Shown here is a 46-nucleotide RNA sequence from Ruminococcus sp. CAG:108, a member of the family "ssNA-helicase RNA". NCBI's taxonomy places the organism under Bacteria, Bacillota, Eubacteriales, Oscillospiraceae, Ruminococcus. It scores 42 bits against the family's covariance model. It is annotated as a small RNA.
[Rfam]
RNA sequence: UGCCUAAAGGGGAAGUAUUACCCUUUAGGCACAAAUGUCACAAGCG
Numbered sequence: 001u002g003c004c005u006a007a008a009g010g011g012g013a014a015g016u017a018u019u020a021c022c023c024u025u026u027a028g029g030c031a032c033a034a035a036u037g038u039c040a041c042a043a044g045c046g
Base pairs, nucleotide, nucleotide: 001031002030003029004028005027006026007025008024009023010022011021